[Rfam]
RNA: chrB-a RNA
RNA sequence: GCCAUGGGGUUUGCGAUUACCCCAUGAGGCGUCAGCUGAAUUUUCGCGUCCAUUCAACCUCAAAUUAUCAGGAGGGAGGACGCUCUG
Numbered sequence: 001g002c003c004a005u006g007g008g009g010u011u012u013g014c015g016a017u018u019a020c021c022c023c024a025u026g027a028g029g030c031g032u033c034a035g036c037u038g039a040a041u042u043u044u045c046g047c048g049u050c051c052a053u054u055c056a057a058c059c060u061c062a063a064a065u066u067a068u069c070a071g072g073a074g075g076g077a078g079g080a081c082g083c084u085c086u087g
Base pairs, nucleotide, nucleotide: 005024006023007022008021009020010019046083047082048081049080050079051078